[Rfam]
RNA sequence: UGGUUAGGUCGCAACUGGCGUUAGGUGGGUCACCACCAGGGAGCGGCACAGCAGCACAGACCACGGAUCGCACGCCUGGGCCGAAGGU
Numbered sequence: 001u002g003g004u005u006a007g008g009u010c011g012c013a014a015c016u017g018g019c020g021u022u023a024g025g026u027g028g029g030u031c032a033c034c035a036c037c038a039g040g041g042a043g044c045g046g047c048a049c050a051g052c053a054g055c056a057c058a059g060a061c062c063a064c065g066g067a068u069c070g071c072a073c074g075c076c077u078g079g080g081c082c083g084a085a086g087g088u
Stems, first nucleotide, its partner, number of pairs: 003052003008047005015040002017076005025036004064083003068080002